The record is a 109-nucleotide RNA sequence from Mycobacterium tuberculosis, which matches "AS1890 sRNA" in Rfam.
On this family, see Arnvig and Young, Mol Microbiol 2009: "Identification of small RNAs in Mycobacterium tuberculosis".
The base pairs follow the family's consensus structure, which is taken from published work.
It is annotated as a non-coding RNA gene.
The source organism's lineage runs through Bacteria, Mycobacteriaceae, Mycobacterium, Mycobacterium tuberculosis complex and Mycobacterium tuberculosis.

RNA sequence: CGCGCGGCUCUGCCAACGACUCCGGUGCGAAGUACCAGCUCGCCGUCGGAAGCAUCAAGAGUCCACACCGCGUCGCUCACGCCACGACUGUAUUCAGACGACCUGCCUG
Numbered sequence: 001c002g003c004g005c006g007g008c009u010c011u012g013c014c015a016a017c018g019a020c021u022c023c024g025g026u027g028c029g030a031a032g033u034a035c036c037a038g039c040u041c042g043c044c045g046u047c048g049g050a051a052g053c054a055u056c057a058a059g060a061g062u063c064c065a066c067a068c069c070g071c072g073u074c075g076c077u078c079a080c081g082c083c084a085c086g087a088c089u090g091u092a093u094u095c096a097g098a099c100g101a102c103c104u105g106c107c108u109g
Stems, first nucleotide, its partner, number of pairs: 002106002006063006021050005027044001028042003032039002070082004085100002088097003